[Rfam]
Shown here is a 102-nucleotide RNA sequence from Bacillus sp. B-jedd, a member of the family "SAM riboswitch aptamer (S box leader)". Pairs were carried over by alignment from the consensus structure, which is taken from published work. The match comes from Rfam's covariance-model search (92 bits).

RNA sequence: UACUUAUCAAGAGAGGUGGAGGGAAAGGCCCUAUGAAACCUCGGCAGCAGGCCGGACGGCACUGUGCCAAUUCCUGCAGGCAUGAAGCCUGGAAGAUAAGGA
Numbered sequence: 001u002a003c004u005u006a007u008c009a010a011g012a013g014a015g016g017u018g019g020a021g022g023g024a025a026a027g028g029c030c031c032u033a034u035g036a037a038a039c040c041u042c043g044g045c046a047g048c049a050g051g052c053c054g055g056a057c058g059g060c061a062c063u064g065u066g067c068c069a070a071u072u073c074c075u076g077c078a079g080g081c082a083u084g085a086a087g088c089c090u091g092g093a094a095g096a097u098a099a100g101g102a
Stems, first nucleotide, its partner, number of pairs: 001102001003100006013042005021031003026075003043068004048064002051060003072094001077091005